This 387-nucleotide part of an RNA from Acidianus hospitalis belongs to the Rfam family "Archaeal large subunit ribosomal RNA".
[Rfam]
RNA sequence: GGCAGUAACAGCGAAGGAGGGUGAGAAUCCCUCCCGCCGAAAGGGCAAGGGUUUCCCGGCAAUGGUCGUCAGCCGGGAGUUAGCCGGUCCUAAGGUAGGGCCUAACUGGUACCUACCGAAAGGGAAAGGGGUUAAUAUUCCCCUGCCACGGGGGUAGGUGCGGCAACGCAAGCCGGACUCCUAACGGAUCGGGCUAGGGGGACGUAAGCCAAACGCUUAAGCCCCUGGAGAGCCGUAAUGGUGAGAAGGGGGUGAAGGCGCGAUGGGCCCUCCGUUAGGGGGGUUCUCCUGAUGCCUGGUCCCCAUGAAAAGGGAGUCCGGAACGAUCCCCCGUGACCGUACCUAGAACCGACACAGGUGCCCCUGGGUGAGAAGCCCAAGGCGCAU
Numbered sequence: 001g002g003c004a005g006u007a008a009c010a011g012c013g014a015a016g017g018a019g020g021g022u023g024a025g026a027a028u029c030c031c032u033c034c035c036g037c038c039g040a041a042a043g044g045g046c047a048a049g050g051g052u053u054u055c056c057c058g059g060c061a062a063u064g065g066u067c068g069u070c071a072g073c074c075g076g077g078a079g080u081u082a083g084c085c086g087g088u089c090c091u092a093a094g095g096u097a098g099g100g101c102c103u104a105a106c107u108g109g110u111a112c113c114u115a116c117c118g119a120a121a122g123g124g125a126a127a128g129g130g131g132u133u134a135a136u137a138u139u140c141c142c143c144u145g146c147c148a149c150g151g152g153g154g155u156a157g158g159u160g161c162g163g164c165a166a167c168g169c170a171a172g173c174c175g176g177a178c179u180c181c182u183a184a185c186g187g188a189u190c191g192g193g194c195u196a197g198g199g200g201g202a203c204g205u206a207a208g209c210c211a212a213a214c215g216c217u218u219a220a221g222c223c224c225c226u227g228g229a230g231a232g233c234c235g236u237a238a239u240g241g242u243g244a245g246a247a248g249g250g251g252g253u254g255a256a257g258g259c260g261c262g263a264u265g266g267g268c269c270c271u272c273c274g275u276u277a278g279g280g281g282g283g284u285u286c287u288c289c290u291g292a293u294g295c296c297u298g299g300u301c302c303c304c305a306u307g308a309a310a311a312g313g314g315a316g317u318c319c320g321g322a323a324c325g326a327u328c329c330c331c332c333g334u335g336a337c338c339g340u341a342c343c344u345a346g347a348a349c350c351g352a353c354a355c356a357g358g359u360g361c362c363c364c365u366g367g368g369u370g371a372g373a374a375g376c377c378c379a380a381g382g383c384g385c386a387u
Base pairs, nucleotide, nucleotide: 016034017033018032019031020030021029035384036383037382038381043363044362045361046360049343050342054078055077056076057075058074059073063071064070085339086338087337089123090122094117095116096115097114098113099112100110101109102108127144128143129142130141131140147335148334149333150332151331152330153329154328180314181313182312186302187301188300189299190298191297192296193295194294197290198289199288200287201286214260215259216258222252223251224250225249226248232242233241234240273278349358350357365379366378367377368376
Rfam's curators put it in the seed alignment.